Rfam assigns this 151-nucleotide sequence from Microcebus murinus to the family "U4 spliceosomal RNA". By type it is a spliceosomal small nuclear RNA.
[Rfam]
RNA sequence: AGCUUUCUGCAGUGGCAGUAUCAUAGCCAAUGAAGUUUAUCUGAGGCAUGAUUAAUGUUAAGAAAAAGUGUAAUAAGAUCAAACAAGACUUCACAUGUUCCUUGUAUUUUAUACAUUCUGAUAAUUUAAUAUUUGGUUCUGAGUCAUUUUA
Numbered sequence: 001a002g003c004u005u006u007c008u009g010c011a012g013u014g015g016c017a018g019u020a021u022c023a024u025a026g027c028c029a030a031u032g033a034a035g036u037u038u039a040u041c042u043g044a045g046g047c048a049u050g051a052u053u054a055a056u057g058u059u060a061a062g063a064a065a066a067a068g069u070g071u072a073a074u075a076a077g078a079u080c081a082a083a084c085a086a087g088a089c090u091u092c093a094c095a096u097g098u099u100c101c102u103u104g105u106a107u108u109u110u111a112u113a114c115a116u117u118c119u120g121a122u123a124a125u126u127u128a129a130u131a132u133u134u135g136g137u138u139c140u141g142a143g144u145c146a147u148u149u150u151a
Stems, first nucleotide, its partner, number of pairs: 020052005026047003034042002085127003091121003140151004
A reference for the family is Zwieb (1997), "The uRNA database", Nucleic Acids Res. Its family is annotated with spliceosomal tri-snRNP complex assembly and U4 snRNP in the Gene Ontology.